This 244-nucleotide sequence from Hoskinsella hominis belongs to the Rfam family "T-box leader". Pairs were carried over by alignment from the consensus structure, which is taken from published work.
[Rfam]
RNA sequence: AUAAAUUUGAUGAUUCAGGAGAAGUAGCAUAGAUAAAUGAUUUUAUAGAGAGUUGGCGAUGGUGGAAAGCCGAUAAAUGAUCCUAUGUGAAUGGACCUGAUAGAAGCACAGGCGAACGUAAUCACUAUUAGCUUGUGACGCAAUUCCAGCGUUAUCAAAGGAAACAGACAUGGUGGUGUUUGUAUAAGAGUGUUUGAUAACACAAAAUUAGGUGGCAUAACGAAGCAGAUUCUUCGUCCUAUUG
Numbered sequence: 001a002u003a004a005a006u007u008u009g010a011u012g013a014u015u016c017a018g019g020a021g022a023a024g025u026a027g028c029a030u031a032g033a034u035a036a037a038u039g040a041u042u043u044u045a046u047a048g049a050g051a052g053u054u055g056g057c058g059a060u061g062g063u064g065g066a067a068a069g070c071c072g073a074u075a076a077a078u079g080a081u082c083c084u085a086u087g088u089g090a091a092u093g094g095a096c097c098u099g100a101u102a103g104a105a106g107c108a109c110a111g112g113c114g115a116a117c118g119u120a121a122u123c124a125c126u127a128u129u130a131g132c133u134u135g136u137g138a139c140g141c142a143a144u145u146c147c148a149g150c151g152u153u154a155u156c157a158a159a160g161g162a163a164a165c166a167g168a169c170a171u172g173g174u175g176g177u178g179u180u181u182g183u184a185u186a187a188g189a190g191u192g193u194u195u196g197a198u199a200a201c202a203c204a205a206a207a208u209u210a211g212g213u214g215g216c217a218u219a220a221c222g223a224a225g226c227a228g229a230u231u232c233u234u235c236g237u238c239c240u241a242u243u244g
Stems, first nucleotide, its partner, number of pairs: 007104002016099004027088006041077003052074006107137007139151003191204003195200001209241004220237005
The organism belongs to Hoskinsella, within Bacteria. On this family, see Winkler et al., RNA 2001: "The GA motif: an RNA element common to bacterial antitermination systems, rRNA, and eukaryotic RNAs". Rfam's curators write: Uncharged tRNA acts as the effector for transcription antitermination of genes in the T-box leader family. T-boxes are found upstream of many aminoacyl-tRNA synthetase genes and some amino acid biosynthetic genes usually in Gram-positive bacteria.